[Rfam]
RNA sequence: UUGAAGCUCCAUCUACAAAUGAAUAAGACUUAGGUCUUAGUAUAUAGAGUUAUUGGAAAUAAAUAAGAAAUGAGCAAUAAUUAGAAUUUCAAUCUAUGACGUCCGCUUUAUAAUAAUUGUUUUUUUUUUUUUU
Numbered sequence: 001u002u003g004a005a006g007c008u009c010c011a012u013c014u015a016c017a018a019a020u021g022a023a024u025a026a027g028a029c030u031u032a033g034g035u036c037u038u039a040g041u042a043u044a045u046a047g048a049g050u051u052a053u054u055g056g057a058a059a060u061a062a063a064u065a066a067g068a069a070a071u072g073a074g075c076a077a078u079a080a081u082u083a084g085a086a087u088u089u090c091a092a093u094c095u096a097u098g099a100c101g102u103c104c105g106c107u108u109u110a111u112a113a114u115a116a117u118u119g120u121u122u123u124u125u126u127u128u129u130u131u132u133u
Stems, first nucleotide, its partner, number of pairs: 008023001010021003061133003065129006072122002075119003080114004

Rfam assigns this 133-nucleotide RNA sequence from Quercus lobata to the family "Plastid-psbA-1 3UTR RNA". The base pairs follow the family's consensus structure, which was predicted with LocARNA. Taxonomically the source falls in Quercus (Eukaryota, Viridiplantae, Embryophyta, Pentapetalae). By type it is a cis-regulatory element. Rfam's curators write: Plastid psbA-1 is a non-coding RNA (ncRNA) present in plastids. It was identified in inverted repeat sequences in the 3 prime untranslate region (3UTR) of photosystem II quinone-binding protein (psbA). Clan: Plastid-psbA 3UTR RNA clan.